[Rfam]
Nucleotides: 120
Stems, first nucleotide, its partner, number of pairs: 001105001003103002023095001025093001037090009048079001050077003054073002058069003
Number, partner (000 for none) and nucleotide at each position: 001105g002000u003103u004102a005000u006000u007000c008000c009000u010000u011000a012000u013000c014000u015000u016000c017000u018000c019000u020000a021000a022000u023095a024000a025093g026000u027000u028000g029000g030000u031000u032000u033000a034000u035000u036000g037090g038089a039088g040087c041086c042085u043084g044083u045082c046000u047000u048079c049000c050077u051076g052075u053000g054073c055072u056000c057000g058069g059068g060067u061000u062000u063000a064000u065000c066000a067060g068059u069058u070000a071000a072055a073054g074000c075052a076051c077050a078000c079048g080000a081000a082045g083044a084043c085042a086041g087040g088039c089038u090037c091000a092000u093025c094000g095023u096000c097000a098000a099000a100000g101000u102004u103003a104000c105001c106000g107000c108000a109000u110000u111000c112000a113000g114000a115000g116000u117000c118000c119000a120000u